Rfam assigns this 93-nucleotide RNA sequence from Dianthovirus trifolii to the family "Dianthovirus RNA2 cap-independent translation element". It is annotated as a cis-regulatory element. It is one of the family's seed sequences. The pairing is the family consensus, mapped onto this sequence. The literature on the family includes a 2010 paper in Virology by An et al., "A Y-shaped RNA structure in the 3' untranslated region together with the trans-activator and core promoter of Red clover necrotic mosaic virus RNA2 is required for its negative-strand RNA synthesis".
RNA sequence: AAAAGAGAAAGAGAAUUGCUUUGGCUUCGGCGGAAGACGAAAAGGUUUAAAUACAGGCUACGAGUUCUCCUCGUAGGGUCUCUCUUUCUUGGC
Numbered sequence: 001a002a003a004a005g006a007g008a009a010a011g012a013g014a015a016u017u018g019c020u021u022u023g024g025c026u027u028c029g030g031c032g033g034a035a036g037a038c039g040a041a042a043a044g045g046u047u048u049a050a051a052u053a054c055a056g057g058c059u060a061c062g063a064g065u066u067c068u069c070c071u072c073g074u075a076g077g078g079u080c081u082c083u084c085u086u087u088c089u090u091g092g093c
Stems, first nucleotide, its partner, number of pairs: 006089009016040003019036004024031002045054002058076007